About this RNA: TPP riboswitch aptamer (THI element): a 132-nucleotide RNA sequence. It scores 63 bits against the family's covariance model.
RNA sequence: AGUUGGCACUAGGGGUGCUCACUCGCUUGUUCUUGAAGCUUCACCAAGCUUCUAAGACUGCGGUGAGCUGAGAUUAUACCCUCAUCACCUGAUCAGGUUAAUACCUGCGUAGGGAAGUUGCCACCGAUAAGU
Numbered sequence: 001a002g003u004u005g006g007c008a009c010u011a012g013g014g015g016u017g018c019u020c021a022c023u024c025g026c027u028u029g030u031u032c033u034u035g036a037a038g039c040u041u042c043a044c045c046a047a048g049c050u051u052c053u054a055a056g057a058c059u060g061c062g063g064u065g066a067g068c069u070g071a072g073a074u075u076a077u078a079c080c081c082u083c084a085u086c087a088c089c090u091g092a093u094c095a096g097g098u099u100a101a102u103a104c105c106u107g108c109g110u111a112g113g114g115a116a117g118u119u120g121c122c123a124c125c126g127a128u129a130a131g132u
Base pairs, nucleotide, nucleotide: 006121007120008119010117011082012081013080014079016076017068018067019066020065021064022063023062088113089112090111091110094107095106096105097104